This 101-nucleotide sequence from Ferrimonas marina belongs to the Rfam family "Alpha operon ribosome binding site". By type it is a cis-regulatory element. It scores 85 bits against the family's covariance model. NCBI's taxonomy places the organism under Bacteria, Pseudomonadati, Pseudomonadota, Ferrimonadaceae, Ferrimonas. The bacterial alpha operon ribosome binding site is surrounded by this complex pseudoknotted structure. Translation of the mRNA produces 4 ribosomal protein products, one of which (S4) acts as a translational repressor by binding to the nested pseudoknot region. The mechanism of repression is thought to involve a conformational switch in the pseudoknot region and ribosome entrapment.
RNA sequence: UCUGGUUUGCUGUUGAGUAUCCUACCGGGCUUUUCCCAGUAAACCUUCGGAAAUUGAGGAGUGCUAUAGUGGCCCGUAUCGCUGGCAUUAACAUUCCCGAG
Numbered sequence: 001u002c003u004g005g006u007u008u009g010c011u012g013u014u015g016a017g018u019a020u021c022c023u024a025c026c027g028g029g030c031u032u033u034u035c036c037c038a039g040u041a042a043a044c045c046u047u048c049g050g051a052a053a054u055u056g057a058g059g060a061g062u063g064c065u066a067u068a069g070u071g072g073c074c075c076g077u078a079u080c081g082c083u084g085g086c087a088u089u090a091a092c093a094u095u096c097c098c099g100a101g
Base pairs, nucleotide, nucleotide: 004045005044006043007042008041009040010039011038012037021085022084026076027075028074029073034100035099